[Rfam]
RNA sequence: GGGACAGGGGGGUCCCCGCCGAGGCGGGGCCUGUCCCUCGUGACGGGACGUGCCCCGCGCACGUUCCGGUGGUUGUCGCUCGGGGGGUGACCGCCG
Number, nucleotide and partner (000 for none) at each position: 001g037002g036003g035004a034005c033006a032007g031008g030009g000010g000011g000012g000013u000014c029015c028016c027017c026018g025019c024020c000021g000022a000023g000024g019025c018026g017027g016028g015029g014030c008031c007032u006033g005034u004035c003036c002037c001038u000039c000040g000041u000042g000043a000044c000045g000046g066047g065048a064049c063050g062051u061052g060053c059054c000055c000056c000057g000058c000059g053060c052061a051062c050063g049064u048065u047066c046067c000068g000069g000070u000071g000072g000073u000074u000075g000076u000077c000078g000079c000080u000081c000082g000083g000084g000085g000086g000087g000088u000089g000090a000091c000092c000093g000094c000095c000096g000